[Rfam]
Source information
A member of the RNA family "Small nucleolar RNA R44/J54/Z268 family" from Thalictrum thalictroides, 84 nucleotides long. Pairs were carried over by alignment from the consensus structure, which was predicted with PFOLD. Taxonomically the source falls in Thalictrum (Eukaryota, Streptophytina, Embryophyta, Euphyllophyta). Its Rfam clan is "SNORD74 clan". Rfam 15.1 lists 1,168 matches to the family in 228 species. Rfam classes the family as a C/D-box small nucleolar RNA.

RNA sequence: AGUGCAAAUGAUGUUAAACUAGACAGGGACAUCAGACUUUUUUGAAAAAUGAUGACUCGUCUUUGGGAAUCUCUCUGAUGCGUU
Numbered sequence: 001a002g003u004g005c006a007a008a009u010g011a012u013g014u015u016a017a018a019c020u021a022g023a024c025a026g027g028g029a030c031a032u033c034a035g036a037c038u039u040u041u042u043u044g045a046a047a048a049a050u051g052a053u054g055a056c057u058c059g060u061c062u063u064u065g066g067g068a069a070u071c072u073c074u075c076u077g078a079u080g081c082g083u084u
Base pairs, nucleotide, nucleotide: 002083003082004081005080006079